A member of the RNA family "Small nucleolar RNA SNORA26" from Pan troglodytes, 123 nucleotides long.
[Rfam]
RNA sequence: UGCCCCUUUUAAGGUUGACACAGUGCAUUAAGCAGAAGGGUUAAGUAAGUCUCCAUAAAACCCAGAGAAAAGAAUGUAAAGCUCCUCUUUGGAGGAGCUAGACUCCUGUCCGGAGUCACAGCU
Numbered sequence: 001u002g003c004c005c006c007u008u009u010u011a012a013g014g015u016u017g018a019c020a021c022a023g024u025g026c027a028u029u030a031a032g033c034a035g036a037a038g039g040g041u042u043a044a045g046u047a048a049g050u051c052u053c054c055a056u057a058a059a060a061c062c063c064a065g066a067g068a069a070a071a072g073a074a075u076g077u078a079a080a081g082c083u084c085c086u087c088u089u090u091g092g093a094g095g096a097g098c099u100a101g102a103c104u105c106c107u108g109u110c111c112g113g114a115g116u117c118a119c120a121g122c123u
Stems, first nucleotide, its partner, number of pairs: 002042001004040007015030001017028001049117001051115004062092007071083002075080001
Annotation: By type it is an H/ACA-box small nucleolar RNA. The family is grouped with related families in Rfam's "SNORA27 clan". Rfam describes the family as follows. The snoRNA HBI-6 belong to the H/ACA family of snoRNAs, guiding the pseudouridylation of position U4522 if the 28S rRNA. HBI-6 is the human orthologue of mouse MBI-6 snoRNA. The family has 76 seed sequences and 1,943 matches in Rfam 15.1. Its family is annotated with RNA processing and nucleolus in the Gene Ontology. A reference for the family is Huttenhofer et al. (2001), "RNomics: an experimental approach that identifies 201 candidates for novel, small, non-messenger RNAs in mouse", EMBO J.